[Rfam]
Overview
A member of the RNA family "RAGATH-18 RNA", 64 nucleotides long. Rfam classes the family as a small RNA. Actinobacteria, Firmicutes, Fusobacteria, Thermotogae (1 example). The sequence is in the family's curated seed alignment.

RNA sequence: CCUGCGGAGCGUCACACCAACCGGAAGUAGCUAAAAGCGAAAACGGGACGCGAAGAAACAGGUA
Numbered sequence: 001c002c003u004g005c006g007g008a009g010c011g012u013c014a015c016a017c018c019a020a021c022c023g024g025a026a027g028u029a030g031c032u033a034a035a036a037g038c039g040a041a042a043a044c045g046g047g048a049c050g051c052g053a054a055g056a057a058a059c060a061g062g063u064a
Stems, first nucleotide, its partner, number of pairs: 001062004009051005022045002030038003